[Rfam]
RNA sequence: CUGACAGAAGAGAGUGAGCACACGCAGGCAAUUGUAUAGGAGUAUACUUUGUUAUAUACGUGUGCUCAUUUCUCUUUCUGUCAG
Numbered sequence: 001c002u003g004a005c006a007g008a009a010g011a012g013a014g015u016g017a018g019c020a021c022a023c024g025c026a027g028g029c030a031a032u033u034g035u036a037u038a039g040g041a042g043u044a045u046a047c048u049u050u051g052u053u054a055u056a057u058a059c060g061u062g063u064g065c066u067c068a069u070u071u072c073u074c075u076u077u078c079u080g081u082c083a084g
Stems, first nucleotide, its partner, number of pairs: 001084009010074003013070009023060002